[Rfam]
RNA: TPP riboswitch aptamer (THI element)
Organism: Desulfovibrio falkowii
RNA sequence: CCUUCGAGCUAGGGGAGCCGUGCAGACAACUGCGCGGCUGAGAGUGGGAUUUCCCAGACCCUUGAACCUGACGCAGUUCGCACUGCCGGAGGGAAGCCGCGGCCACAAGCU
Numbered sequence: 001c002c003u004u005c006g007a008g009c010u011a012g013g014g015g016a017g018c019c020g021u022g023c024a025g026a027c028a029a030c031u032g033c034g035c036g037g038c039u040g041a042g043a044g045u046g047g048g049a050u051u052u053c054c055c056a057g058a059c060c061c062u063u064g065a066a067c068c069u070g071a072c073g074c075a076g077u078u079c080g081c082a083c084u085g086c087c088g089g090a091g092g093g094a095a096g097c098c099g100c101g102g103c104c105a106c107a108a109g110c111u
Stems, first nucleotide, its partner, number of pairs: 008097003011062004017038008045056004067092003073086004